[Rfam]
RNA: mir-36 microRNA precursor family
Organism: Caenorhabditis brenneri
RNA sequence: UUCUUGGGAUAGUCGGACGCCUUUGCUGGUGUUUCCUGCGGUGAUAUUUCAAAUAACAAUUAUCACCGAGAGAACAUCAGUAGAGGCUAGGCCAUAUCUU
Numbered sequence: 001u002u003c004u005u006g007g008g009a010u011a012g013u014c015g016g017a018c019g020c021c022u023u024u025g026c027u028g029g030u031g032u033u034u035c036c037u038g039c040g041g042u043g044a045u046a047u048u049u050c051a052a053a054u055a056a057c058a059a060u061u062a063u064c065a066c067c068g069a070g071a072g073a074a075c076a077u078c079a080g081u082a083g084a085g086g087c088u089a090g091g092c093c094a095u096a097u098c099u100u
Base pairs, nucleotide, nucleotide: 019087020086021085022084024082025081026080027079028078029077030076031075032074033073034072036070037069039068041066042065043064044063045062046061